[Rfam]
Small nucleolar RNA Z112: a 189-nucleotide RNA from Actinidia chinensis. A reference for the family is Liang et al. (2002), "A novel gene organization: intronic snoRNA gene clusters from Oryza sativa", Nucleic Acids Res. Rfam links the family to the GO terms RNA processing and nucleolus. By type it is a C/D-box small nucleolar RNA.
RNA sequence: AGCCCUAUGAGGAAGAAAUCCCUUUAGAUAGGAAGUGCCGUAUGACACUUCAAACAGCAGCGGCGGCGCCUCUUCCCAUCCGCCGGUGUCCUCCCUCUGAUUUUCUCAAAAUCACAGGGGUUCACCGGCCGGGAUUGGUUGCCCCUUCGUUUCGCUGUGUGUAUGAUUUGAAACGGGUCUCUGAGGGUC
Numbered sequence: 001a002g003c004c005c006u007a008u009g010a011g012g013a014a015g016a017a018a019u020c021c022c023u024u025u026a027g028a029u030a031g032g033a034a035g036u037g038c039c040g041u042a043u044g045a046c047a048c049u050u051c052a053a054a055c056a057g058c059a060g061c062g063g064c065g066g067c068g069c070c071u072c073u074u075c076c077c078a079u080c081c082g083c084c085g086g087u088g089u090c091c092u093c094c095c096u097c098u099g100a101u102u103u104u105c106u107c108a109a110a111a112u113c114a115c116a117g118g119g120g121u122u123c124a125c126c127g128g129c130c131g132g133g134a135u136u137g138g139u140u141g142c143c144c145c146u147u148c149g150u151u152u153c154g155c156u157g158u159g160u161g162u163a164u165g166a167u168u169u170g171a172a173a174c175g176g177g178u179c180u181c182u183g184a185g186g187g188u189c
Stems, first nucleotide, its partner, number of pairs: 002188004075138002078135004082129007092120005099113006